[Rfam]
RNA sequence: UUCAGAGUAGACAAGGUGCGUGAAGUGUUAAAGGAUGGGAAGUCGCCUUUAAACGAAAUGCGUCCAUUGCGAUACCUUGUCGCUUCCGCUGUU
Number, nucleotide and partner (000 for none) at each position: 001u000002u000003c091004a090005g089006a000007g000008u000009a000010g081011a080012c079013a078014a077015g076016g075017u074018g073019c071020g070021u069022g000023a000024a000025g054026u053027g000028u052029u051030a050031a049032a048033g047034g046035a000036u000037g000038g087039g086040a085041a084042g083043u000044c000045g000046c034047c033048u032049u031050u030051a029052a028053a026054c025055g000056a000057a068058a067059u066060g065061c000062g000063u000064c000065c060066a059067u058068u057069g021070c020071g019072a000073u018074a017075c016076c015077u014078u013079g012080u011081c010082g000083c042084u041085u040086c039087c038088g000089c005090u004091g003092u000093u000